[Rfam]
RNA: Alphaproteobacterial sRNA ar9
RNA sequence: AUAAAGAGGAGCGGAAAUUCAACCGCUUUCCUGCGCGGUCAAAGUCUUGGGAGGAUGCGAUCUAGGCGCGAUUUUCCGCAGCCGCCGAACACCGGAAACAGAUCGGACGCGUGAUAAAAUUGCAAGGCUUCGGCCUUGCAUUUUUUU
Numbered sequence: 001a002u003a004a005a006g007a008g009g010a011g012c013g014g015a016a017a018u019u020c021a022a023c024c025g026c027u028u029u030c031c032u033g034c035g036c037g038g039u040c041a042a043a044g045u046c047u048u049g050g051g052a053g054g055a056u057g058c059g060a061u062c063u064a065g066g067c068g069c070g071a072u073u074u075u076c077c078g079c080a081g082c083c084g085c086c087g088a089a090c091a092c093c094g095g096a097a098a099c100a101g102a103u104c105g106g107a108c109g110c111g112u113g114a115u116a117a118a119a120u121u122g123c124a125a126g127g128c129u130u131c132g133g134c135c136u137u138g139c140a141u142u143u144u145u146u147u
Base pairs, nucleotide, nucleotide: 003146004145005144010027011026012025013024014023034111035110036109037108044056045055046054047053059104060103061102062101063100065083066082067081068079069078070077085095086094087093121140122139123138124137125136126135127134128133